[Rfam]
RNA sequence: AUACUCCUGCUUGGUAAGACUUUAGCCAAGUCGCCAAUACCGAGUCUUGGGUUACCUGUAGAGAUGCAGGGUGCUAAGCGUAGACAGGGAGGUUAAUAGGCCUGAAAGUGAUAGAGCCUCGAAAUGGGAUACAUCGGGAAGGUUGACGGUGUGCGGAAACUGGAAAACAACAUUCCAUAUAGCGUGAAAAAAAAAUGGUGAGCUAGGUGGAACUUCCCCGGGGUCAGUGAACC
Numbered sequence: 001a002u003a004c005u006c007c008u009g010c011u012u013g014g015u016a017a018g019a020c021u022u023u024a025g026c027c028a029a030g031u032c033g034c035c036a037a038u039a040c041c042g043a044g045u046c047u048u049g050g051g052u053u054a055c056c057u058g059u060a061g062a063g064a065u066g067c068a069g070g071g072u073g074c075u076a077a078g079c080g081u082a083g084a085c086a087g088g089g090a091g092g093u094u095a096a097u098a099g100g101c102c103u104g105a106a107a108g109u110g111a112u113a114g115a116g117c118c119u120c121g122a123a124a125u126g127g128g129a130u131a132c133a134u135c136g137g138g139a140a141g142g143u144u145g146a147c148g149g150u151g152u153g154c155g156g157a158a159a160c161u162g163g164a165a166a167a168c169a170a171c172a173u174u175c176c177a178u179a180u181a182g183c184g185u186g187a188a189a190a191a192a193a194a195a196u197g198g199u200g201a202g203c204u205a206g207g208u209g210g211a212a213c214u215u216c217c218c219c220g221g222g223g224u225c226a227g228u229g230a231a232c233c
Base pairs, nucleotide, nucleotide: 012036013035014034015033019031020030021029022028023201025199026198038090040088041087044085045084046083047082048080049079050075051074052073055070056069057068058067059066060065114225116224117223118222119221120220121219136218137217138216139215140214141213142168143167144166147162148161149160150159173212174211175210176209177208178207180205181204182203183202

Notes
A member of the RNA family "Group II catalytic intron D1-D4-6" from Lentibacillus kapialis, 233 nucleotides long. The literature on the family includes a 2001 paper in Trends Genet by Bonen and Vogel, "The ins and outs of group II introns". The family has 174 seed sequences and 1,617 matches in Rfam 15.1.